[Rfam]
RNA: mir-19 microRNA precursor family
RNA sequence: GCCUUCGCUCAGUUUUGCUGGUUUGCAUUCUGCUUGACUCGACGUUCGCUGUGCAAAUCCAUGCAAAACUGAGCGCAGCA
Numbered sequence: 001g002c003c004u005u006c007g008c009u010c011a012g013u014u015u016u017g018c019u020g021g022u023u024u025g026c027a028u029u030c031u032g033c034u035u036g037a038c039u040c041g042a043c044g045u046u047c048g049c050u051g052u053g054c055a056a057a058u059c060c061a062u063g064c065a066a067a068a069c070u071g072a073g074c075g076c077a078g079c080a
Stems, first nucleotide, its partner, number of pairs: 003078002006075013020060002022057007032049002